Rfam assigns this 134-nucleotide sequence from Coffea canephora to the family "Small nucleolar RNA snoR74". By type it is an H/ACA-box small nucleolar RNA. The organism belongs to Coffea, within Eukaryota. On this family, see Marker et al., Curr Biol 2002: "Experimental RNomics: identification of 140 candidates for small non-messenger RNAs in the plant Arabidopsis thaliana".

[Rfam]
RNA sequence: GAAAAAGUAGGAGCCUAUUGCUGUUUAUUGUGAAUGGGUCUCUUGUAAACUUCAGGGAAAUAAAACUUGGCAUUGUUAUUGGGUGAACCUCUUGAGCUUACAAUAGAAAGUUUAUUAGAAAUGAUGUGUCAGAA
Numbered sequence: 001g002a003a004a005a006a007g008u009a010g011g012a013g014c015c016u017a018u019u020g021c022u023g024u025u026u027a028u029u030g031u032g033a034a035u036g037g038g039u040c041u042c043u044u045g046u047a048a049a050c051u052u053c054a055g056g057g058a059a060a061u062a063a064a065a066c067u068u069g070g071c072a073u074u075g076u077u078a079u080u081g082g083g084u085g086a087a088c089c090u091c092u093u094g095a096g097c098u099u100a101c102a103a104u105a106g107a108a109a110g111u112u113u114a115u116u117a118g119a120a121a122u123g124a125u126g127u128g129u130c131a132g133a134a
Base pairs, nucleotide, nucleotide: 005052006051007050011041014038015037016036017035018034019033070127071126072125073124074123075122076121077120084114085113086112087111088110090108
Gene Ontology terms of the family: nucleolus and RNA processing.